The family of this 102-nucleotide RNA sequence from Xenopus laevis is "Vault RNA". It scores 61 bits against the family's covariance model. The source organism's lineage runs through Eukaryota, Batrachia, Anura, Xenopus and Xenopus. The family's RNA type in Rfam is non-coding RNA gene. The base pairs follow the family's consensus structure, which is taken from published work.
RNA sequence: GGGCUGGCCUUAUAGCUCAACGGUUCCUUCUCAAUCCCUCUGUUUACAACCAGACUAAUCCUCUCGGGGGUUCAAAACCCGCGGGCGCUAUCCAGCCUUUUA
Numbered sequence: 001g002g003g004c005u006g007g008c009c010u011u012a013u014a015g016c017u018c019a020a021c022g023g024u025u026c027c028u029u030c031u032c033a034a035u036c037c038c039u040c041u042g043u044u045u046a047c048a049a050c051c052a053g054a055c056u057a058a059u060c061c062u063c064u065c066g067g068g069g070g071u072u073c074a075a076a077a078c079c080c081g082c083g084g085g086c087g088c089u090a091u092c093c094a095g096c097c098u099u100u101u102a
Stems, first nucleotide, its partner, number of pairs: 002097006015086004021081003028076002